This 170-nucleotide RNA sequence from Spermophilus dauricus belongs to the Rfam family "U11 spliceosomal RNA". By type it is a spliceosomal small nuclear RNA. NCBI's taxonomy places the organism under Eukaryota, Bilateria, Mammalia, Sciuromorpha, Spermophilus. Its Rfam clan is "U1 clan". A search with the family's covariance model found it, with a score of 49 bits.
[Rfam]
RNA sequence: AAAAAGGGCUUUUGUAGUGAGUGGCACAUGUAGGGCAACUUGAUUACUCUUCAUGUGAAUUGACAUCAACAGAUUUUAGAAGGUUGAGUUUUGGCAGUUGGGCAGUAUCUUACAUUAAAAAUAGAUAAUUAAUUAAUUAAAAAGCCCUGGCAGGCUGUGGUUGUGUCUCG
Number, nucleotide and partner (000 for none) at each position: 001a000002a000003a000004a000005a000006g000007g000008g000009c082010u081011u080012u079013u026014g025015u024016a000017g022018u000019g000020a000021g000022u017023g000024g015025c014026a013027c055028a054029u053030g052031u000032a050033g049034g048035g047036c000037a045038a044039c000040u000041u000042g000043a000044u038045u037046a000047c035048u034049c033050u032051u000052c030053a029054u028055g027056u078057g076058a075059a074060u073061u072062g000063a000064c000065a000066u000067c000068a000069a000070c000071a000072g061073a060074u059075u058076u057077u000078a056079g012080a011081a010082g009083g000084u000085u000086g000087a000088g000089u000090u000091u000092u000093g000094g000095c000096a000097g000098u000099u000100g168101g167102g166103c165104a000105g164106u163107a162108u000109c160110u000111u159112a158113c157114a156115u000116u000117a000118a000119a000120a000121a000122u000123a000124g000125a000126u000127a000128a000129u000130u000131a000132a000133u000134u000135a000136a000137u000138u000139a000140a000141a000142a000143a000144g000145c000146c000147c000148u000149g000150g000151c000152a000153g000154g000155c000156u114157g113158u112159g111160g109161u000162u107163g106164u105165g103166u102167c101168u100169c000170g000